ASpks TB sRNA: a 75-nucleotide RNA from Streptomyces genisteinicus. Rfam classes the family as an antisense RNA. Lineage of the source: Bacteria > Actinomycetes > Kitasatosporales > Streptomycetaceae > Streptomyces. A search with the family's covariance model found it, with a score of 78 bits. A reference for the family is Arnvig and Young (2009), "Identification of small RNAs in Mycobacterium tuberculosis", Mol Microbiol. The family's consensus secondary structure is taken from published work.

RNA sequence: UUUGACCGAGCCGAGCCAGAGCGGCACGUCGUCCGCCCGGUCCUGCCCGUAGGUGGCCAGCAGCGCCUGCGCCUC
Numbered sequence: 001u002u003u004g005a006c007c008g009a010g011c012c013g014a015g016c017c018a019g020a021g022c023g024g025c026a027c028g029u030c031g032u033c034c035g036c037c038c039g040g041u042c043c044u045g046c047c048c049g050u051a052g053g054u055g056g057c058c059a060g061c062a063g064c065g066c067c068u069g070c071g072c073c074u075c
Base pairs, nucleotide, nucleotide: 015025016024017023033069038065039064043060044059045058047056048055049054